[Rfam]
Nucleotides: 113
Stems, first nucleotide, its partner, number of pairs: 001077005008071002013033006019026002035067004040062010085108005091102003
Number, partner (000 for none) and nucleotide at each position: 001077a002076u003075u004074c005073c006000g007000c008071u009070c010000g011000u012000a013033g014032g015031c016030g017029c018028c019026c020025c021000c022000g023000u024000a025020g026019g027000g028018g029017g030016u031015g032014u033013c034000g035067c036066c037065a038064g039000g040062g041061c042060c043059c044058u045057g046056g047055c048054a049053c050000a051000u052000g053049g054048u055047g056046u057045c058044a059043g060042g061041g062040u063000g064038c065037u066036g067035g068000a069000g070009g071008a072000c073005g074004g075003a076002a077001u078000a079000a080000a081000c082000u083000a084000c085108g086107c087106a088105a089104c090000a091102g092101g093100g094000a095000a096000c097000a098000u099000u100093c101092c102091u103000g104089g105088u106087u107086g108085c109000u110000c111000u112000u113000u